[Rfam]
RNA sequence: ACAGGCACUUGGCACCUUUGUGAAACAAUACAGAGGAGUCACAGGGUAGUACCUGAGGGUCUGU
Numbered sequence: 001a002c003a004g005g006c007a008c009u010u011g012g013c014a015c016c017u018u019u020g021u022g023a024a025a026c027a028a029u030a031c032a033g034a035g036g037a038g039u040c041a042c043a044g045g046g047u048a049g050u051a052c053c054u055g056a057g058g059g060u061c062u063g064u
Stems, first nucleotide, its partner, number of pairs: 001064006008057002012053001016046008
Description: Shown here is a 64-nucleotide RNA sequence from Saimiri boliviensis, a member of the family "MAT2A 3'UTR stem loop B". The family's RNA type in Rfam is cis-regulatory element. It scores 68 bits against the family's covariance model. Rfam 15.1 lists 248 matches to the family in 157 species. The source organism's lineage runs through Eukaryota, Metazoa, Dipnotetrapodomorpha, Platyrrhini and Saimiri boliviensis.